[Rfam]
RNA: mir-71 microRNA precursor family
Organism: Blomia tropicalis
RNA sequence: UCUUUGUGAAAGACAUGGGUAGUGAGAUGUCGCUCAAACCGUAAAUGGUUGAGUAUUAUACAAACUUCAUCUCACUACCUUGUCUUUGACGAAGCG
Number, nucleotide and partner (000 for none) at each position: 001u000002c000003u000004u000005u000006g000007u000008g000009a087010a086011a085012g084013a083014c082015a081016u000017g080018g079019g078020u000021a076022g075023u074024g073025a072026g071027a070028u069029g068030u000031c000032g000033c000034u000035c000036a000037a000038a000039c000040c000041g000042u000043a000044a000045a000046u000047g000048g000049u000050u000051g000052a000053g000054u000055a000056u000057u000058a000059u000060a000061c000062a000063a000064a000065c000066u000067u000068c029069a028070u027071c026072u025073c024074a023075c022076u021077a000078c019079c018080u017081u015082g014083u013084c012085u011086u010087u009088g000089a000090c000091g000092a000093a000094g000095c000096g000